[Rfam]
Nucleotides: 150
Stems, first nucleotide, its partner, number of pairs: 003144001011136003015132002019069003025063005033056009071087005090116006097110003101106001117127002
Number, partner (000 for none) and nucleotide at each position: 001000g002000a003144u004000g005000a006000a007000a008000u009000c010000a011136g012135a013134c014000u015132c016131c017000u018000a019069g020068c021067c022000u023000u024000u025063g026062u027061g028060c029059c030000u031000a032000a033056g034055u035054g036053a037052u038051g039050u040049g041048g042000c043000a044000g045000u046000g047000a048041c049040u050039g051038c052037g053036u054035c055034a056033u057000a058000c059029g060028g061027u062026g063025c064000u065000c066000u067021g068020g069019c070000c071087g072086u073085g074084a075083c076000c077000c078000u079000u080000g081000a082000g083075g084074u085073c086072a087071c088000c089000a090116g091115g092114g093113u094112g095111c096000a097110g098109g099108g100000g101106a102000g103000a104000a105000a106101u107000g108099c109098c110097c111095g112094c113093g114092c115091c116090u117127c118126c119000c120000g121000a122000a123000u124000u125000u126118g127117g128000a129000a130000a131016g132015g133000u134013g135012u136011u137000u138000a139000u140000g141000c142000u143000a144003a145000g146000u147000c148000a149000a150000u
Shown here is a 150-nucleotide sequence from Candidatus Symbiopectobacterium sp. Dall1.0, a member of the family "Molybdenum/Tungsten riboswitch aptamer (Moco RNA motif)".
Lineage of the source: Bacteria > Pseudomonadati > Pseudomonadota > ant, tsetse, mealybug, aphid, etc. endosymbionts > Symbiopectobacterium.